[Rfam]
RNA sequence: UGGAUCGAUGAUGAGAGGUGGUGGUGUAUGAGUCAAGGACGAUGAAUAUACAUGGCUGGAACUCUGAGGUCCAA
Numbered sequence: 001u002g003g004a005u006c007g008a009u010g011a012u013g014a015g016a017g018g019u020g021g022u023g024g025u026g027u028a029u030g031a032g033u034c035a036a037g038g039a040c041g042a043u044g045a046a047u048a049u050a051c052a053u054g055g056c057u058g059g060a061a062c063u064c065u066g067a068g069g070u071c072c073a074a
Stems, first nucleotide, its partner, number of pairs: 002072005